The record is a 551-nucleotide part of an RNA from Thermoplasmatales archaeon B_DKE, which matches "Archaeal large subunit ribosomal RNA" in Rfam. The base pairs follow the family's consensus structure, which is taken from published work. The literature on the family includes a 2001 paper in Science by Yusupov et al., "Crystal structure of the ribosome at 5.5 A resolution".
RNA sequence: UAAACUGCUAAACUGCUUGGGGAAUGGUUUGGUUUGGAAGCUGAAGAAGGACGUGCCAAGCUGCGAUAAGCUUCGGGGAGGCGCAUGGGGCCUUAGAUCCGAAGAUCUCCGAAUGGGACUUCCUGUCUCAAUGACACUCCGUAAGGAGAGGGCACCCGGGGAAUUGAAACAUCUUAGUACCCGGAGGAAAAGAAAUCAAUAGAGAUGCCGUUAAUAAGGGCGACCGAAAGCGGCAAAAGGCAAACCGAAUCCCCUGUUGAAAGAUAGGGGAGAUGUGGAGUUUGGACUUUUUUUAACACCUCCCAACCUAAUUCGAAUCUACUGGAAAGUAGAACCAUAGAGGGUGAUAGUCCUGUAGAAGUAAAGUUGAAGGUCAUAAGAAGAAGUAUCCAGAGUACCGUGCGUCGUUUUUCGCGCGGGAAUUCGGGUGGCACUAACACCCAACCUUAAAUACAUCCCAAAUCCGAUAGCGAACAAGUACCGUGAGGGAAAACUGAAAAGUAACCCGAAAGGGUGGUGAUAAGAACCUGAAACCAAGCAGUGAUAAACUU
Numbered sequence: 001u002a003a004a005c006u007g008c009u010a011a012a013c014u015g016c017u018u019g020g021g022g023a024a025u026g027g028u029u030u031g032g033u034u035u036g037g038a039a040g041c042u043g044a045a046g047a048a049g050g051a052c053g054u055g056c057c058a059a060g061c062u063g064c065g066a067u068a069a070g071c072u073u074c075g076g077g078g079a080g081g082c083g084c085a086u087g088g089g090g091c092c093u094u095a096g097a098u099c100c101g102a103a104g105a106u107c108u109c110c111g112a113a114u115g116g117g118a119c120u121u122c123c124u125g126u127c128u129c130a131a132u133g134a135c136a137c138u139c140c141g142u143a144a145g146g147a148g149a150g151g152g153c154a155c156c157c158g159g160g161g162a163a164u165u166g167a168a169a170c171a172u173c174u175u176a177g178u179a180c181c182c183g184g185a186g187g188a189a190a191a192g193a194a195a196u197c198a199a200u201a202g203a204g205a206u207g208c209c210g211u212u213a214a215u216a217a218g219g220g221c222g223a224c225c226g227a228a229a230g231c232g233g234c235a236a237a238a239g240g241c242a243a244a245c246c247g248a249a250u251c252c253c254c255u256g257u258u259g260a261a262a263g264a265u266a267g268g269g270g271a272g273a274u275g276u277g278g279a280g281u282u283u284g285g286a287c288u289u290u291u292u293u294u295a296a297c298a299c300c301u302c303c304c305a306a307c308c309u310a311a312u313u314c315g316a317a318u319c320u321a322c323u324g325g326a327a328a329g330u331a332g333a334a335c336c337a338u339a340g341a342g343g344g345u346g347a348u349a350g351u352c353c354u355g356u357a358g359a360a361g362u363a364a365a366g367u368u369g370a371a372g373g374u375c376a377u378a379a380g381a382a383g384a385a386g387u388a389u390c391c392a393g394a395g396u397a398c399c400g401u402g403c404g405u406c407g408u409u410u411u412u413c414g415c416g417c418g419g420g421a422a423u424u425c426g427g428g429u430g431g432c433a434c435u436a437a438c439a440c441c442c443a444a445c446c447u448u449a450a451a452u453a454c455a456u457c458c459c460a461a462a463u464c465c466g467a468u469a470g471c472g473a474a475c476a477a478g479u480a481c482c483g484u485g486a487g488g489g490a491a492a493a494c495u496g497a498a499a500a501g502u503a504a505c506c507c508g509a510a511a512g513g514g515u516g517g518u519g520a521u522a523a524g525a526a527c528c529u530g531a532a533a534c535c536a537a538g539c540a541g542u543g544a545u546a547a548a549c550u551u
Base pairs, nucleotide, nucleotide: 012542013541014540015539016538017537018536019535020534026528027494028493031465032464033462034461035460036459037458040454049110050109051108052065053064054063071104072103073102074101075100076099080092081091082090115124116123117122137148138147139146140145155186156184157183158182159181160180166173167172196203197202207234208233209232210231211230218224237448238447239446240445245278246277247276255266256265257264258263288385289384290383291382298374299373312360313359314358318333319332320331321330322329336340342354343353344352398419399418400417401416402415403414404413426442427441428440429439430438481488482487

The match comes from Rfam's covariance-model search (2755 bits).